[Rfam]
RNA sequence: AGCUAGUAUGGUAGAAAGAUUCAUAUAUUUCUUUCUACCAUACUAGCUAUUAUUGUAAUGUAACAAGUUG
Numbered sequence: 001a002g003c004u005a006g007u008a009u010g011g012u013a014g015a016a017a018g019a020u021u022c023a024u025a026u027a028u029u030u031c032u033u034u035c036u037a038c039c040a041u042a043c044u045a046g047c048u049a050u051u052a053u054u055g056u057a058a059u060g061u062a063a064c065a066a067g068u069u070g
Stems, first nucleotide, its partner, number of pairs: 002047018
Plastid-psbM 3UTR RNA: a 70-nucleotide RNA sequence. It is annotated as a cis-regulatory element. For this family Rfam cites "Retrograde signaling in plants: A critical review focusing on the GUN pathway and beyond" (Richter et al., Plant Commun, 2023). Rfam describes the family as follows. Plastid psbM is a non-coding RNA (ncRNA) recognised in plastids. It was found in the three prime untranslated region (3UTR) of psbM gene, its 3UTR location suggests a role in transcript maturation. Rfam 15.1 lists 627 matches to the family in 337 species. The base pairs follow the family's consensus structure, which was predicted with LocARNA.